Description:
The family of this 180-nucleotide sequence from Hyunsoonleella pacifica is "Flavo-1 RNA". It is annotated as a small RNA. The source organism's lineage runs through Bacteria, Pseudomonadati, Bacteroidota, Flavobacteriaceae and Hyunsoonleella. The family has 201 seed sequences and 7,497 matches in Rfam 15.1. It scores 49 bits against the family's covariance model.

RNA sequence: UAGUAGGCAAGUGCGUUAGGGAUAGUAGUGGCAUCCUUUUUAAAACUUUUGCAAAUUAGUCGUCAUUACGAGGAGGCACGACGAAGUAAUCUGUUUUAAUUGAAGAAGAUUGCUUUUUGAAGUUAACAAUGACGUUAACUGGUAAGUUUUAAAAAGAUAUAACGGAUAGCCCGACCCGAC
Numbered sequence: 001u002a003g004u005a006g007g008c009a010a011g012u013g014c015g016u017u018a019g020g021g022a023u024a025g026u027a028g029u030g031g032c033a034u035c036c037u038u039u040u041u042a043a044a045a046c047u048u049u050u051g052c053a054a055a056u057u058a059g060u061c062g063u064c065a066u067u068a069c070g071a072g073g074a075g076g077c078a079c080g081a082c083g084a085a086g087u088a089a090u091c092u093g094u095u096u097u098a099a100u101u102g103a104a105g106a107a108g109a110u111u112g113c114u115u116u117u118u119g120a121a122g123u124u125a126a127c128a129a130u131g132a133c134g135u136u137a138a139c140u141g142g143u144a145a146g147u148u149u150u151a152a153a154a155a156g157a158u159a160u161a162a163c164g165g166a167u168a169g170c171c172c173g174a175c176c177c178g179a180c
Base pairs, nucleotide, nucleotide: 019172020171021170023168024167028163029162033158034157035156039153040152041151042150043149044148045147046146047145048144